[Rfam]
RNA sequence: AUAAUGUUUCUUGCUCAAAUGAGUAUUCCAACAAACAGUUUGCAUUUUGCGUACAAAGAAUAUAUUUCACUCUUUCUUCUUUUCUUUAAUCACUCACUAUAUAUAUAUAUAUAUGUGUGGGUUUGAUUCUGCUGGUGGUGCUACUGUUUGUUUUGAGAUGCUCAUUUGAGCAAGCAAUAUUAA
Numbered sequence: 001a002u003a004a005u006g007u008u009u010c011u012u013g014c015u016c017a018a019a020u021g022a023g024u025a026u027u028c029c030a031a032c033a034a035a036c037a038g039u040u041u042g043c044a045u046u047u048u049g050c051g052u053a054c055a056a057a058g059a060a061u062a063u064a065u066u067u068c069a070c071u072c073u074u075u076c077u078u079c080u081u082u083u084c085u086u087u088a089a090u091c092a093c094u095c096a097c098u099a100u101a102u103a104u105a106u107a108u109a110u111a112u113a114u115g116u117g118u119g120g121g122u123u124u125g126a127u128u129c130u131g132c133u134g135g136u137g138g139u140g141c142u143a144c145u146g147u148u149u150g151u152u153u154u155g156a157g158a159u160g161c162u163c164a165u166u167u168g169a170g171c172a173a174g175c176a177a178u179a180u181u182a183a
Stems, first nucleotide, its partner, number of pairs: 004180005010174018029155002